RNA sequence: GCUGACCGCGCGGGAGAGUUCCGGCGAAUCGCCCCAACAGGUGAUGCGCCGGGCGCCGAAGGAGCAACCGCCCCGGAAUCUCUCAGGCAAAAGGACCGCACAGGGUCG
Numbered sequence: 001g002c003u004g005a006c007c008g009c010g011c012g013g014g015a016g017a018g019u020u021c022c023g024g025c026g027a028a029u030c031g032c033c034c035c036a037a038c039a040g041g042u043g044a045u046g047c048g049c050c051g052g053g054c055g056c057c058g059a060a061g062g063a064g065c066a067a068c069c070g071c072c073c074c075g076g077a078a079u080c081u082c083u084c085a086g087g088c089a090a091a092a093g094g095a096c097c098g099c100a101c102a103g104g105g106u107c108g
Base pairs, nucleotide, nucleotide: 006103008101010099011098012097013096020053021052022051023050024049025048026047055088056087057086058084059083062082063081064080068076069075
Background
The family of this 108-nucleotide RNA sequence from Novosphingobium flavum is "Glycine riboswitch aptamer". It scores 62 bits against the family's covariance model. NCBI's taxonomy places the organism under Bacteria, Pseudomonadota, Alphaproteobacteria, Sphingomonadales, Novosphingobium.